RNA sequence: ACAUAAGGAGUAAUAAACUCUCUUGUUCUAUCACGAGAGUUUAUUGCUCCUUAAUUUUC
Numbered sequence: 001a002c003a004u005a006a007g008g009a010g011u012a013a014u015a016a017a018c019u020c021u022c023u024u025g026u027u028c029u030a031u032c033a034c035g036a037g038a039g040u041u042u043a044u045u046g047c048u049c050c051u052u053a054a055u056u057u058u059c
Stems, first nucleotide, its partner, number of pairs: 004053019024033002
A member of the RNA family "Plastid-psbA-2 3UTR RNA", 59 nucleotides long. Plastid psbA-2 is a non-coding RNA (ncRNA) present in plastids. It was identified in inverted repeat sequences in the 3 prime untranslate region (3UTR) of photosystem II quinone-binding protein (psbA). A reference for the family is Richter et al. (2023), "Retrograde signaling in plants: A critical review focusing on the GUN pathway and beyond", Plant Commun.